[Rfam]
RNA: mir-30 microRNA precursor family
RNA sequence: UCAGUUCAUGUAAACAUCCUACACUCAGCUGGAAUCGGACGCAGCGGAGGCUGAGAGAAGGUUGUUUACUUGCACUGG
Numbered sequence: 001u002c003a004g005u006u007c008a009u010g011u012a013a014a015c016a017u018c019c020u021a022c023a024c025u026c027a028g029c030u031g032g033a034a035u036c037g038g039a040c041g042c043a044g045c046g047g048a049g050g051c052u053g054a055g056a057g058a059a060g061g062u063u064g065u066u067u068a069c070u071u072g073c074a075c076u077g078g
Base pairs, nucleotide, nucleotide: 002077003076004075005074008071010069011068012067013066014065015064016063018061019060020059022057024055025054026053027052028051029050030049